RNA: S16-Flavobacteria ribosomal protein leader
RNA sequence: AUUAAUAACCAGGGUCGGGAACCCUUAAUAUUUAAU
Numbered sequence: 001a002u003u004a005a006u007a008a009c010c011a012g013g014g015u016c017g018g019g020a021a022c023c024c025u026u027a028a029u030a031u032u033u034a035a036u
Stems, first nucleotide, its partner, number of pairs: 001036005011025005